[Rfam]
RNA sequence: GGCGAUAAACGAGCGGUGUAAUACGCCUUUCGGACCCGGGGGCAGUACCCGGCGCCUCCACCCGAGCCCAUCGGACGGUCCCAGGACGGAUCGGCGGCGGUGGGUUCCGGCGGGGGCGAACUAGGAUCGACGAGGGUCUAAAAACCGAUCUUUUGCCCGGCAUGAUACCGCCGUUAUCGGGUCAAACUAUAGUUGCCAACGACAACUAUGCUCCGGUUGCAGUGGCCGCGUGA
Dot-bracket structure: (((((........((((........(((.(((...(((((.......)))))(((((((....................................................)))))))............)))))).......)))).....)))))((((........))))............................................................
RNA: permuted transfer-messenger RNA
Organism: Siculibacillus lacustris